[Rfam]
RNA sequence: UGAUAUAGGUGUCAAAAGUCAAAAAUGUGUACAUGCUUGCAUGUUAAGCAUUUUGACUUUAUGACCCGAACAAAUAUGAGGAAUUAGCAAUUUACGUAGUAAAUUAGCGGUUUCCGAAUAUUUGUAGAAUUGCGAAAAUGACGUUAGUCAUGGAGCAAUUCGUAUAUCA
Numbered sequence: 001u002g003a004u005a006u007a008g009g010u011g012u013c014a015a016a017a018g019u020c021a022a023a024a025a026u027g028u029g030u031a032c033a034u035g036c037u038u039g040c041a042u043g044u045u046a047a048g049c050a051u052u053u054u055g056a057c058u059u060u061a062u063g064a065c066c067c068g069a070a071c072a073a074a075u076a077u078g079a080g081g082a083a084u085u086a087g088c089a090a091u092u093u094a095c096g097u098a099g100u101a102a103a104u105u106a107g108c109g110g111u112u113u114c115c116g117a118a119u120a121u122u123u124g125u126a127g128a129a130u131u132g133c134g135a136a137a138a139u140g141a142c143g144u145u146a147g148u149c150a151u152g153g154a155g156c157a158a159u160u161c162g163u164a165u166a167u168c169a
Stems, first nucleotide, its partner, number of pairs: 001169007011065003015060007023053006030046001031044005070125008080115004087108002089105007127161007138151004